[Rfam]
RNA sequence: GCUUCGGAUUCAGGAGAGUGCCGGCCCGCAACAGGUCGGCCGCCGAAGGCGCAAGCUCCCAUACUCGCUCAGGCCCCGUACUGGAUCCGCCAC
Dot-bracket structure: .....((((((((......(((((((.......))))))).(((((..(((...(......)...))))).)))......)))))))).....
This 93-nucleotide RNA sequence from Roseateles asaccharophilus belongs to the Rfam family "Glycine riboswitch aptamer". Rfam links the family to the GO term glycine biosynthetic process. The organism belongs to Roseateles, within Bacteria. Rfam 15.1 lists 9,425 matches to the family in 5,228 species.